[Rfam]
RNA sequence: GGGGAUACACUUAGAGUCCCCAGUAUAAGCGUGUUAAUAGUGGUGCUUUUGGCCGAGCAUCACGGUUAGUGAAUC
Numbered sequence: 001g002g003g004g005a006u007a008c009a010c011u012u013a014g015a016g017u018c019c020c021c022a023g024u025a026u027a028a029g030c031g032u033g034u035u036a037a038u039a040g041u042g043g044u045g046c047u048u049u050u051g052g053c054c055g056a057g058c059a060u061c062a063c064g065g066u067u068a069g070u071g072a073a074u075c
Base pairs, nucleotide, nucleotide: 001021002020003019004018005017006016034069035068036067037066038065040063041062042061043060044059045058046057047056048055